[Rfam]
RNA: Small nucleolar RNA SNORA58
Organism: Monodelphis domestica
RNA sequence: GUGCAUACCAGUAGACCUCAUCUGGCUUUAUCUCAUAGCCAGGUGAGGGGGACAGAGUAUGCAAAAGGAAAUGUGGAGUGAUUUGCCAGAUACAGACUGCCAAUUUGAUGGCUUGGCUGAACUGCAUUACUUCCAUAGAC
Numbered sequence: 001g002u003g004c005a006u007a008c009c010a011g012u013a014g015a016c017c018u019c020a021u022c023u024g025g026c027u028u029u030a031u032c033u034c035a036u037a038g039c040c041a042g043g044u045g046a047g048g049g050g051g052a053c054a055g056a057g058u059a060u061g062c063a064a065a066a067g068g069a070a071a072u073g074u075g076g077a078g079u080g081a082u083u084u085g086c087c088a089g090a091u092a093c094a095g096a097c098u099g100c101c102a103a104u105u106u107g108a109u110g111g112c113u114u115g116g117c118u119g120a121a122c123u124g125c126a127u128u129a130c131u132u133c134c135a136u137a138g139a140c
Base pairs, nucleotide, nucleotide: 003062004061005060006059007058008057016048017047018046019045020044021043022042023041024040075133076132077131078130084126085125086124097115099112100111